Shown here is a 367-nucleotide RNA sequence from Aurantimonas sp. 22II-16-19i, a member of the family "Alphaproteobacteria transfer-messenger RNA". It scores 305 bits against the family's covariance model. Lineage of the source: Bacteria > Pseudomonadota > Alphaproteobacteria > Aurantimonadaceae > Aurantimonas. The literature on the family includes a 1996 paper in RNA by Williams and Bartel, "Phylogenetic analysis of tmRNA secondary structure". Rfam describes the family as follows. Bacterial tmRNA, also known as 10Sa RNA or SsrA, is named for its dual tRNA and mRNA-like properties.
RNA sequence: GCUCUUUUCACAGGCGGGGAAUGUCCUUAUAUUCGCGAUGCCGGGCAUUCGUCCGGCUAUGGCGAUAAACGUUCGUUGGAAUAAGCCUUUCGGACCCGGGGGCGGUACCCGGCGCCUCCACCCGAUGCCACGGUCGCGGCAAGCGAUCCUGGCAUGCGGCGGGGGCGAAAUAGGAUCGACGAGGGUGUAAAGAGCGAAUUUUUGCUCGGCAUGGUUCCGCCGUUAUCGGGCCGAAAAAGUAGUUGCCAACGACAACUAUGCGGAAGCACGUCUCGCAGCGUAAGCUGCGCGAUAGCUUCAAUUCAAGUCCUGGGGGUUCGCACUUCUAGGCGGGGCUCGGAGGCGCCUGGCAACAGAAGCCUCCACU
Dot-bracket structure: .......................................(((((((....)))))))...(((((.....(((((((........(((.(((...(((((.......)))))(((((((.........................................)))))))............)))))).......)))))))..)))))[[[[.(((.(((]]]].....))))))...................................................................................................[[[[..((((((]]]]..........))))))...